[Rfam]
RNA sequence: GAUAGGCCGAGCCCGGCGUGCAAAGCUGAGUCAAACAUGAAUGUUUUGUUCGUUCGGCUCGCGUUAUCU
Numbered sequence: 001g002a003u004a005g006g007c008c009g010a011g012c013c014c015g016g017c018g019u020g021c022a023a024a025g026c027u028g029a030g031u032c033a034a035a036c037a038u039g040a041a042u043g044u045u046u047u048g049u050u051c052g053u054u055c056g057g058c059u060c061g062c063g064u065u066a067u068c069u
Stems, first nucleotide, its partner, number of pairs: 001068003004064001006062001008061006017052002020049004025044002